Shown here is an 83-nucleotide sequence from Phascolarctos cinereus, a member of the family "Small nucleolar RNA SNORD124".
RNA sequence: AUAUUUCAAGGGAGAAAUGAUGUUCAAAGUGAGUCCCAGGUCUGUGAUGGAGCUGCUCUCUUUCCGACCUUCCUUGACUUGAA
Numbered sequence: 001a002u003a004u005u006u007c008a009a010g011g012g013a014g015a016a017a018u019g020a021u022g023u024u025c026a027a028a029g030u031g032a033g034u035c036c037c038a039g040g041u042c043u044g045u046g047a048u049g050g051a052g053c054u055g056c057u058c059u060c061u062u063u064c065c066g067a068c069c070u071u072c073c074u075u076g077a078c079u080u081g082a083a
Base pairs, nucleotide, nucleotide: 009074010073011072012071013070014069

The source organism's lineage runs through Eukaryota, Euteleostomi, Mammalia, Phascolarctidae and Phascolarctos. Its family is annotated with RNA processing and nucleolus in the Gene Ontology.